RNA: Z30 small nucleolar RNA
Organism: Chanos chanos
RNA sequence: CAGCAGUGAUGAGCUGUGAUUGAGUCUGACCUGGUAUUGUCGUCUCCCCGGAGGCGCUCUGACCAGGGCCUGACGACGGUAAUCUUCUCUCUGAGUGG
Numbered sequence: 001c002a003g004c005a006g007u008g009a010u011g012a013g014c015u016g017u018g019a020u021u022g023a024g025u026c027u028g029a030c031c032u033g034g035u036a037u038u039g040u041c042g043u044c045u046c047c048c049c050g051g052a053g054g055c056g057c058u059c060u061g062a063c064c065a066g067g068g069c070c071u072g073a074c075g076a077c078g079g080u081a082a083u084c085u086u087c088u089c090u091c092u093g094a095g096u097g098g
Stems, first nucleotide, its partner, number of pairs: 001097001003096002039057001041056002